[Rfam]
RNA sequence: CUUCCAGUCCGGGCCCCUCUGGCCGAUGCGUCCCGCCGUGGCGCACCGGUGAUGUCGGACUGCUCAU
Numbered sequence: 001c002u003u004c005c006a007g008u009c010c011g012g013g014c015c016c017c018u019c020u021g022g023c024c025g026a027u028g029c030g031u032c033c034c035g036c037c038g039u040g041g042c043g044c045a046c047c048g049g050u051g052a053u054g055u056c057g058g059a060c061u062g063c064u065c066a067u
Stems, first nucleotide, its partner, number of pairs: 006061007022050004027045006